[Rfam]
RNA sequence: UUUAGGAGGGAACAAAUGAACGAAGUUCAUUUCUAUAAAUGUUCCCGACGAUUUGCCGCUGACUGUAAGGAAGGGGCAUUACAUUUA
Numbered sequence: 001u002u003u004a005g006g007a008g009g010g011a012a013c014a015a016a017u018g019a020a021c022g023a024a025g026u027u028c029a030u031u032u033c034u035a036u037a038a039a040u041g042u043u044c045c046c047g048a049c050g051a052u053u054u055g056c057c058g059c060u061g062a063c064u065g066u067a068a069g070g071a072a073g074g075g076g077c078a079u080u081a082c083a084u085u086u087a
Base pairs, nucleotide, nucleotide: 008046009045010044011043012042013041015031016030017029018028019027020026055077056076057075059073060072063069064068
Dot-bracket structure: .......((((((.((((((.....)))))).........))))))........(((.((..((...))..)).)))..........